[Rfam]
RNA sequence: AAUCAAUAUGAAAAUAGACAAAUCUGAGCAUCAGAAGACCUUCUAGUCUAUCUGAUGCAUGAUCUCUGUAGUUCUGAGA
Number, nucleotide and partner (000 for none) at each position: 001a000002a000003u000004c000005a000006a000007u000008a000009u000010g000011a000012a000013a000014a000015u000016a000017g000018a000019c000020a000021a000022a000023u000024c000025u000026g000027a000028g058029c057030a056031u055032c054033a000034g000035a000036a049037g048038a047039c046040c000041u000042u000043c000044u000045a000046g039047u038048c037049u036050a000051u000052c000053u000054g032055a031056u030057g029058c028059a000060u000061g000062a000063u000064c000065u000066c000067u000068g000069u000070a000071g000072u000073u000074c000075u000076g000077a000078g000079a000